[Rfam]
RNA sequence: UGGCGCCCAACCUGUGGGGCCUGGAUACAGGGGCCUCCAUAAGGAAGAGCACUCAGGUGGCCUGCAUUGUAUACAGAAAUUCCUUCAAAUGCCAUGGGAGCCUGUUGUGGUCGAAAUGAAGGUGAGUGACAGACAUUAUGGGACAAGCAUUAAGCCUACAUGAGGUCUAUGUGAGACAAUUAAAAGAGACAUUAAAGGUGUGAGCAGUAAAGUAAAACAAAUUAUUUAUUUAACUUUUUUUGAUUUUGUUAAGGAUCUUUGCCGUU
Numbered sequence: 001u002g003g004c005g006c007c008c009a010a011c012c013u014g015u016g017g018g019g020c021c022u023g024g025a026u027a028c029a030g031g032g033g034c035c036u037c038c039a040u041a042a043g044g045a046a047g048a049g050c051a052c053u054c055a056g057g058u059g060g061c062c063u064g065c066a067u068u069g070u071a072u073a074c075a076g077a078a079a080u081u082c083c084u085u086c087a088a089a090u091g092c093c094a095u096g097g098g099a100g101c102c103u104g105u106u107g108u109g110g111u112c113g114a115a116a117u118g119a120a121g122g123u124g125a126g127u128g129a130c131a132g133a134c135a136u137u138a139u140g141g142g143a144c145a146a147g148c149a150u151u152a153a154g155c156c157u158a159c160a161u162g163a164g165g166u167c168u169a170u171g172u173g174a175g176a177c178a179a180u181u182a183a184a185a186g187a188g189a190c191a192u193u194a195a196a197g198g199u200g201u202g203a204g205c206a207g208u209a210a211a212g213u214a215a216a217a218c219a220a221a222u223u224a225u226u227u228a229u230u231u232a233a234c235u236u237u238u239u240u241u242g243a244u245u246u247u248g249u250u251a252a253g254g255a256u257c258u259u260u261g262c263c264g265u266u
Stems, first nucleotide, its partner, number of pairs: 006033003014028003040048001082122004090115001093109005132144001136141001151194003154190001156188001201242004206237002210227006251266002254263001256261001

This 266-nucleotide RNA sequence from Rattus norvegicus belongs to the Rfam family "Mason-Pfizer monkey virus packaging signal". The match comes from Rfam's covariance-model search (139 bits). For this family Rfam cites "Mutational analysis of the predicted secondary RNA structure of the Mason-Pfizer monkey virus packaging signal" (Mustafa et al., Virus Res, 2004). It is annotated as a cis-regulatory element. Taxonomically the source falls in Rattus (Eukaryota, Eutheria, Rodentia, Myomorpha).